This 140-nucleotide RNA from Channa argus belongs to the Rfam family "U4 spliceosomal RNA".
RNA sequence: AUUCUUGUGCAGUGGCAGUAUCGUAGCCCGUGAGGUUUAUCCGAGGCGCGAUUAUUGCUAGUUGAAAACUUUACCCAAUACCCCGCCUUGACGACUUGAAAUAUAGUCGGCUAUGGCAAUUUUGAUGGUCUCUGUGGUGA
Numbered sequence: 001a002u003u004c005u006u007g008u009g010c011a012g013u014g015g016c017a018g019u020a021u022c023g024u025a026g027c028c029c030g031u032g033a034g035g036u037u038u039a040u041c042c043g044a045g046g047c048g049c050g051a052u053u054a055u056u057g058c059u060a061g062u063u064g065a066a067a068a069c070u071u072u073a074c075c076c077a078a079u080a081c082c083c084c085g086c087c088u089u090g091a092c093g094a095c096u097u098g099a100a101a102u103a104u105a106g107u108c109g110g111c112u113a114u115g116g117c118a119a120u121u122u123u124g125a126u127g128g129u130c131u132c133u134g135u136g137g138u139g140a
Stems, first nucleotide, its partner, number of pairs: 020052005026047003034042002085117003088113001090111001092109005129140002132137001

Annotation
The source organism's lineage runs through Eukaryota, Chordata, Osteoglossocephalai, Anabantiformes and Channa. Rfam classes the family as a spliceosomal small nuclear RNA.